[Rfam]
RNA sequence: UCGCAAUCCGCCAACCGGUCAAGCCGUGUCGCGGAAGGUUGUCCAACCAGCCAACGUCUCAGGAAACCUGAGAGUAAGGUGAGCG
Dot-bracket structure: .(((..(((((....((((...))))....))))).((((....)))).(((....(((((((...)))))))....)))..)))
Numbered sequence: 001u002c003g004c005a006a007u008c009c010g011c012c013a014a015c016c017g018g019u020c021a022a023g024c025c026g027u028g029u030c031g032c033g034g035a036a037g038g039u040u041g042u043c044c045a046a047c048c049a050g051c052c053a054a055c056g057u058c059u060c061a062g063g064a065a066a067c068c069u070g071a072g073a074g075u076a077a078g079g080u081g082a083g084c085g
Stems, first nucleotide, its partner, number of pairs: 002085003007035005016026004037048004050080003057073007